[Rfam]
RNA sequence: UAUUCGAAACGGCAAAUCUAUUGAAAGAUAGAGACGCAAAGCUAUGGGCCUAAGGAAGAAAAUUCUAUGGUCGCCUGGUUCCCGAA
Numbered sequence: 001u002a003u004u005c006g007a008a009a010c011g012g013c014a015a016a017u018c019u020a021u022u023g024a025a026a027g028a029u030a031g032a033g034a035c036g037c038a039a040a041g042c043u044a045u046g047g048g049c050c051u052a053a054g055g056a057a058g059a060a061a062a063u064u065c066u067a068u069g070g071u072c073g074c075c076u077g078g079u080u081c082c083c084g085a086a
Stems, first nucleotide, its partner, number of pairs: 012037002017032006040080004046075002048071003055065003
RNA: c-di-GMP-I riboswitch aptamer
Organism: Paenibacillus abyssi